This 105-nucleotide RNA from Austwickia chelonae belongs to the Rfam family "mraW RNA".

RNA sequence: UGCGGGCCCUGUCUUGUGGUCUCUCCCCGCUCCGAGAUGUUCCCGGGAUACUUCCCCGAUCUCGGGCCCGAGCGGUGGGAGACCGGAUGACAGGGCCUGUCGUAU
Numbered sequence: 001u002g003c004g005g006g007c008c009c010u011g012u013c014u015u016g017u018g019g020u021c022u023c024u025c026c027c028c029g030c031u032c033c034g035a036g037a038u039g040u041u042c043c044c045g046g047g048a049u050a051c052u053u054c055c056c057c058g059a060u061c062u063c064g065g066g067c068c069c070g071a072g073c074g075g076u077g078g079g080a081g082a083c084c085g086g087a088u089g090a091c092a093g094g095g096c097c098u099g100u101c102g103u104a105u
Stems, first nucleotide, its partner, number of pairs: 010092004015087001018084002021081005027075006034068001042066008
Lineage of the source: Bacteria > Bacillati > Actinomycetota > Dermatophilaceae > Austwickia chelonae.